[Rfam]
RNA sequence: CUCUUAUCAAGAGUGGCAGAGGGACUAGGCCCGUUGAAGCCCGGCAACCGUCAAUGGAACAUCCAUUUGAAAAGGUGCUAAUUCCUACAGGUAUGGACCUGAUAGAUAAGAG
Numbered sequence: 001c002u003c004u005u006a007u008c009a010a011g012a013g014u015g016g017c018a019g020a021g022g023g024a025c026u027a028g029g030c031c032c033g034u035u036g037a038a039g040c041c042c043g044g045c046a047a048c049c050g051u052c053a054a055u056g057g058a059a060c061a062u063c064c065a066u067u068u069g070a071a072a073a074g075g076u077g078c079u080a081a082u083u084c085c086u087a088c089a090g091g092u093a094u095g096g097a098c099c100u101g102a103u104a105g106a107u108a109a110g111a112g
Base pairs, nucleotide, nucleotide: 001112002111003110004109005108006107007106008105013042015041016040017039021032022031023030026087027086028085029084043079044078045077046076048075049074051070052069053068083104088101089100090099091098092097
The record is a 112-nucleotide RNA sequence from Gracilibacillus dipsosauri, which matches "SAM riboswitch aptamer (S box leader)" in Rfam. NCBI's taxonomy places the organism under Bacteria, Bacilli, Caryophanales, Bacillaceae, Gracilibacillus. The base pairs follow the family's consensus structure, which is taken from published work.